[Rfam]
RNA sequence: AAAAUGAAUAACGAAAAUUUUCAUAUAAUCGUGGGAAUAUGGCCUACAAGUUUCUACCGGUUCACCGUAAAUGAACCGACUAUGAAAAGCAACUAAUGAUUA
Numbered sequence: 001a002a003a004a005u006g007a008a009u010a011a012c013g014a015a016a017a018u019u020u021u022c023a024u025a026u027a028a029u030c031g032u033g034g035g036a037a038u039a040u041g042g043c044c045u046a047c048a049a050g051u052u053u054c055u056a057c058c059g060g061u062u063c064a065c066c067g068u069a070a071a072u073g074a075a076c077c078g079a080c081u082a083u084g085a086a087a088a089g090c091a092a093c094u095a096a097u098g099a100u101u102a
Stems, first nucleotide, its partner, number of pairs: 018088008029049001031047005058078007

The family of this 102-nucleotide RNA sequence from Salinibacillus xinjiangensis is "Purine riboswitch aptamer".
Taxonomically the source falls in Salinibacillus (Bacteria, Bacilli, Caryophanales, Bacillaceae).
Rfam describes the family as follows. Riboswitches are metabolite binding domains within certain messenger RNAs that serve as precision sensors for their corresponding targets. Allosteric rearrangement of mRNA structure is mediated by ligand binding, and this results in modulation of gene expression. A class of riboswitches that selectively recognises guanine and becomes saturated at concentrations as low as 5 nM. In Bacillus subtilis, this mRNA motif is located on at least five separate transcriptional units that together encode 17 genes that are mostly involved in purine transport and purine nucleotide biosynthesis. It has also been shown that some members of this family are specific for adenine instead.
The base pairs follow the family's consensus structure, which is taken from published work.